[Rfam]
RNA sequence: AUACUUACCUGGCAGGGGAGAUACCGUGAUCAGAAGGUGGUUUCCCCAGGGAGAAGCUUAUCCAUUGCACUCUGGAUAUUCUGAUCCUGCGAUUUCCCCAAAUGUGGAAAAGUCGACUGCAUAAUUUGUGGUAGUGGGGAUUGUGUUUGUGUUCUAUA
Numbered sequence: 001a002u003a004c005u006u007a008c009c010u011g012g013c014a015g016g017g018g019a020g021a022u023a024c025c026g027u028g029a030u031c032a033g034a035a036g037g038u039g040g041u042u043u044c045c046c047c048a049g050g051g052a053g054a055a056g057c058u059u060a061u062c063c064a065u066u067g068c069a070c071u072c073u074g075g076a077u078a079u080u081c082u083g084a085u086c087c088u089g090c091g092a093u094u095u096c097c098c099c100a101a102a103u104g105u106g107g108a109a110a111a112g113u114c115g116a117c118u119g120c121a122u123a124a125u126u127u128g129u130g131g132u133a134g135u136g137g138g139g140a141u142u143g144u145g146u147u148u149g150u151g152u153u154c155u156a157u158a
Base pairs, nucleotide, nucleotide: 012120013119014118015117016047017046018045020043021042023041024040025039026038027037049088050087051086053085055082056081059078060077061076062075063074090115091114092113093111094109095108097107098106143154145152
RNA: U1 spliceosomal RNA